Nucleotides: 075
Base pairs, nucleotide, nucleotide: 002074003073004072006070008068009067010066011065012064013063014062015061016060019057020056024054025053026052027051028050029049030048031047032046
Number, partner (000 for none) and nucleotide at each position: 001000g002074u003073a004072g005000c006070a007000c008068g009067u010066g011065u012064a013063a014062a015061c016060a017000u018000c019057c020056u021000a022000c023000a024054c025053u026052c027051u028050c029049a030048g031047c032046u033000g034000u035000g036000a037000a038000c039000u040000c041000g042000a043000g044000g045000u046032g047031g048030c049029u050028g051027g052026g053025a054024g055000a056020g057019g058000a059000u060016u061015g062014u063013u064012u065011a066010c067009g068008c069000c070006u071000u072004c073003u074002g075000c
This 75-nucleotide RNA sequence from Gallus gallus belongs to the Rfam family "mir-30 microRNA precursor family".
Taxonomically the source falls in Gallus (Eukaryota, Bilateria, Deuterostomia, Vertebrata).
The family has 175 seed sequences and 3,879 matches in Rfam 15.1.
For this family Rfam cites "Identification of novel genes coding for small expressed RNAs" (Lagos-Quintana et al., Science, 2001).
This family consists of the mammalian microRNA (miRNA) precursor mir-30a. Animal miRNAs are transcribed as ~70nt precursors and subsequently processed by the Dicer enzyme to give a ~22nt product.
The family's consensus secondary structure was predicted with PFOLD.